[Rfam]
Nucleotides: 057
Base pairs, nucleotide, nucleotide: 009055010054011053012052013051014050015049016048017047022043024041025040026039027038028037029036
Number, partner (000 for none) and nucleotide at each position: 001000a002000a003000a004000u005000a006000a007000a008000a009055g010054g011053a012052a013051c014050a015049a016048u017047a018000a019000c020000c021000c022043c023000c024041u025040u026039c027038u028037u029036g030000u031000u032000c033000u034000a035000g036029c037028a038027a039026g040025a041024g042000g043022g044000c045000g046000u047017u048016a049015u050014u051013g052012u053011u054010c055009c056000c057000c

Source information
This 57-nucleotide RNA from Lobelia polyphylla belongs to the Rfam family "Plastid-psbA-4 3UTR RNA". For this family Rfam cites "Retrograde signaling in plants: A critical review focusing on the GUN pathway and beyond" (Richter et al., Plant Commun, 2023). Pairs were carried over by alignment from the consensus structure, which was predicted with LocARNA. Rfam's curators put it in the seed alignment. Plastid psbA-4 is a non-coding RNA (ncRNA) present in plastids. It was identified in inverted repeat sequences in the 3 prime untranslate region (3UTR) of photosystem II quinone-binding protein (psbA). By type it is a cis-regulatory element.